[Rfam]
RNA sequence: GAGUGAGGUAGAGGCGCAAAAACCAAGAGUACCCUCCGGAGAUAUGGGAAUCUAUGAUGGAGCUGGGAAAGGGGAAUUUGCCGAAGUGUGCACGCGAUACCCAAGCGGUGCAUGCUGGGCUUACGUUGAAUAAGCGUAAGACUGUCAUUUGUAUGUCCUACCCGUCAUGCAAAUGGAGAGCUAUCUCACCG
Numbered sequence: 001g002a003g004u005g006a007g008g009u010a011g012a013g014g015c016g017c018a019a020a021a022a023c024c025a026a027g028a029g030u031a032c033c034c035u036c037c038g039g040a041g042a043u044a045u046g047g048g049a050a051u052c053u054a055u056g057a058u059g060g061a062g063c064u065g066g067g068a069a070a071g072g073g074g075a076a077u078u079u080g081c082c083g084a085a086g087u088g089u090g091c092a093c094g095c096g097a098u099a100c101c102c103a104a105g106c107g108g109u110g111c112a113u114g115c116u117g118g119g120c121u122u123a124c125g126u127u128g129a130a131u132a133a134g135c136g137u138a139a140g141a142c143u144g145u146c147a148u149u150u151g152u153a154u155g156u157c158c159u160a161c162c163c164g165u166c167a168u169g170c171a172a173a174u175g176g177a178g179a180g181c182u183a184u185c186u187c188a189c190c191g
Stems, first nucleotide, its partner, number of pairs: 006186006016081005023074002032066002034062005085116009094106002117143002120140008145176011
The family of this 191-nucleotide sequence from Brevibacillus laterosporus is "Lysine riboswitch aptamer". Gene Ontology term of the family: lysine biosynthetic process. The organism belongs to Brevibacillus laterosporus, within Bacteria. It scores 113 bits against the family's covariance model.